[Rfam]
RNA sequence: CAAUCUGUUGUCAGUGAUGUGUUCCUAGUAGAGCUGAAAUUUCCAUGAUUGCACAUAAUGUUUCGUCACUACCACUGAGACAACAGACAA
Numbered sequence: 001c002a003a004u005c006u007g008u009u010g011u012c013a014g015u016g017a018u019g020u021g022u023u024c025c026u027a028g029u030a031g032a033g034c035u036g037a038a039a040u041u042u043c044c045a046u047g048a049u050u051g052c053a054c055a056u057a058a059u060g061u062u063u064c065g066u067c068a069c070u071a072c073c074a075c076u077g078a079g080a081c082a083a084c085a086g087a088c089a090a
Stems, first nucleotide, its partner, number of pairs: 004087009